The family of this 93-nucleotide RNA sequence from Brevibacillus fluminis is "Glycine riboswitch aptamer". The base pairs follow the family's consensus structure. It scores 68 bits against the family's covariance model.
[Rfam]
RNA sequence: AUGAUGGUAGCAGGGAGAGACCGCUUCAGUGCGGCGCCGAAGGAGCAAGCCGGAAACGGUGAAUCUCUCAGGCAAAAGUACCUCUACCGGACG
Dot-bracket structure: .....(((((.(((......((((......)))).(((((..(((...((........))....))))).))).......)))))))).....